[Rfam]
RNA sequence: CUUCGCUGGGGAGUAGCCGGCUUUUCCGCAAUGGAAAAGCGCCCAUGUCAACACGCUCGGUCGUUCAGACCGUGGCAUGGGCAACCAUCACAGGUUGGCAAGACCAUCGACAGAAUUCGCGACCGGUCGGGCGCGCGUUCUGUCGUUCCAUCUUGCCCGACCUGAGC
Numbered sequence: 001c002u003u004c005g006c007u008g009g010g011g012a013g014u015a016g017c018c019g020g021c022u023u024u025u026c027c028g029c030a031a032u033g034g035a036a037a038a039g040c041g042c043c044c045a046u047g048u049c050a051a052c053a054c055g056c057u058c059g060g061u062c063g064u065u066c067a068g069a070c071c072g073u074g075g076c077a078u079g080g081g082c083a084a085c086c087a088u089c090a091c092a093g094g095u096u097g098g099c100a101a102g103a104c105c106a107u108c109g110a111c112a113g114a115a116u117u118c119g120c121g122a123c124c125g126g127u128c129g130g131g132c133g134c135g136c137g138u139u140c141u142g143u144c145g146u147u148c149c150a151u152c153u154u155g156c157c158c159g160a161c162c163u164g165a166g167c
Stems, first nucleotide, its partner, number of pairs: 021039003041082010058072005089166001
Dot-bracket structure: ....................(((.............))).((((((((((.......(((((.....)))))))))))))))......(............................................................................).
Manganese Mn2+ riboswitch aptamer (yybP-ykoY): a 167-nucleotide RNA from Caballeronia novacaledonica. Lineage of the source: Bacteria > Pseudomonadati > Betaproteobacteria > Burkholderiales > Caballeronia. Rfam 15.1 lists 1,126 matches to the family in 1,062 species. Pairs were carried over by alignment from the consensus structure. The literature on the family includes a 2001 paper in Curr Biol by Argaman et al., "Novel small RNA-encoding genes in the intergenic regions of Escherichia coli". Rfam's curators write: This RNA was originally discovered in E. coli during a large scale screen and was named SraF. The family was later found to exist upstream of related families of protein genes in many bacteria, including the the yybP and ykoK genes in B. subtilis.